[Rfam]
RNA sequence: GGGGCUCACCCGGGGUGCCUCCAGAAGAGGCUGAGAUAUUGCUGGCGCAUUUGCGCAGUGCAGGGACCCGACGAACCUGAUCCAGGUCAUGCUGGCGAAGGGAAGGUGUUCUCGGCCAGCU
Numbered sequence: 001g002g003g004g005c006u007c008a009c010c011c012g013g014g015g016u017g018c019c020u021c022c023a024g025a026a027g028a029g030g031c032u033g034a035g036a037u038a039u040u041g042c043u044g045g046c047g048c049a050u051u052u053g054c055g056c057a058g059u060g061c062a063g064g065g066a067c068c069c070g071a072c073g074a075a076c077c078u079g080a081u082c083c084a085g086g087u088c089a090u091g092c093u094g095g096c097g098a099a100g101g102g103a104a105g106g107u108g109u110u111c112u113c114g115g116c117c118a119g120c121u
Base pairs, nucleotide, nucleotide: 007108008107009106010105011070012069013068014067016064017031018030019029020028021027039063040062041061042060076101077100078099082095083094084093085092
This 121-nucleotide RNA sequence from Roseibium aggregatum belongs to the Rfam family "TPP riboswitch aptamer (THI element)". The match comes from Rfam's covariance-model search (66 bits). The organism belongs to Roseibium, within Bacteria.